The record is a 180-nucleotide RNA from Kosakonia cowanii, which matches "sok antitoxin (CssrC)" in Rfam. Rfam links the family to the GO term mRNA binding. For this family Rfam cites "An integrated approach for finding overlooked genes in Shigella" (Peng et al., PLoS One, 2011).
RNA sequence: CGGCGCUUGAGGCUUUUUGCCUCAUGGGCUGCAUUUAGAAGUAAUACGCAGAAAUGUUGUGAGGCAGAAAGAUGAAAGCCCCGAGUCAAUUUUUCAAUUAACCCGAGGCUACACCAACGCAUCAACAACGUCAGCGUAGCCUCUUACCUGCUGAAAGGCAAGGAGUUAUAGGCUAUGAAA
Numbered sequence: 001c002g003g004c005g006c007u008u009g010a011g012g013c014u015u016u017u018u019g020c021c022u023c024a025u026g027g028g029c030u031g032c033a034u035u036u037a038g039a040a041g042u043a044a045u046a047c048g049c050a051g052a053a054a055u056g057u058u059g060u061g062a063g064g065c066a067g068a069a070a071g072a073u074g075a076a077a078g079c080c081c082c083g084a085g086u087c088a089a090u091u092u093u094u095c096a097a098u099u100a101a102c103c104c105g106a107g108g109c110u111a112c113a114c115c116a117a118c119g120c121a122u123c124a125a126c127a128a129c130g131u132c133a134g135c136g137u138a139g140c141c142u143c144u145u146a147c148c149u150g151c152u153g154a155a156a157g158g159c160a161a162g163g164a165g166u167u168a169u170a171g172g173c174u175a176u177g178a179a180a
Base pairs, nucleotide, nucleotide: 002081003080005079006078007077008076011073013071014070015069016068017067018066019065020064021063022062023061026058027057083104085102086101088098090096105143106142107141108140109139111137112136114134117131118130119129147172148171149170
NCBI's taxonomy places the organism under Bacteria, Pseudomonadati, Enterobacteriaceae, Kosakonia, Kosakonia cowanii. Also identified in Shigella as CssrC. The family has 91 seed sequences and 305 matches in Rfam 15.1.